[Rfam]
RNA: Purine riboswitch aptamer
Nucleotides: 102
Base pairs, nucleotide, nucleotide: 018088019087020086021085022084023083024082025081029049031047032046033045034044035043058078059077060076061075062074063073064072
Number, partner (000 for none) and nucleotide at each position: 001000c002000a003000a004000a005000a006000a007000u008000a009000u010000a011000u012000u013000u014000c015000u016000a017000u018088u019087u020086u021085u022084c023083a024082u025081a026000u027000a028000a029049u030000c031047g032046u033045g034044g035043g036000g037000a038000u039000a040000u041000g042000g043035c044034c045033u046032a047031c048000a049029a050000g051000u052000u053000u054000c055000u056000a057000c058078c059077g060076g061075u062074u063073u064072a065000c066000c067000g068000u069000a070000a071000a072064u073063g074062a075061a076060c077059c078058g079000a080000c081025u082024a083023u084022g085021a086020a087019a088018a089000g090000c091000g092000a093000a094000a095000g096000a097000g098000a099000a100000g101000a102000u